[Rfam]
RNA sequence: CCUUUGGAGUGUUAUAUAAACCAGAUUAGUCAGAUUUAUGAUGAAAUGGGACACGAUGAAUAAGGAA
Numbered sequence: 001c002c003u004u005u006g007g008a009g010u011g012u013u014a015u016a017u018a019a020a021c022c023a024g025a026u027u028a029g030u031c032a033g034a035u036u037u038a039u040g041a042u043g044a045a046a047u048g049g050g051a052c053a054c055g056a057u058g059a060a061u062a063a064g065g066a067a
Stems, first nucleotide, its partner, number of pairs: 001065004009054005021049003029042003033037001
About this RNA
Rfam assigns this 67-nucleotide RNA sequence to the family "RAGATH-18 RNA". Rfam's curators write: Actinobacteria, Firmicutes, Fusobacteria, Thermotogae (1 example). Pairs were carried over by alignment from the consensus structure, which is taken from published work. It is annotated as a small RNA.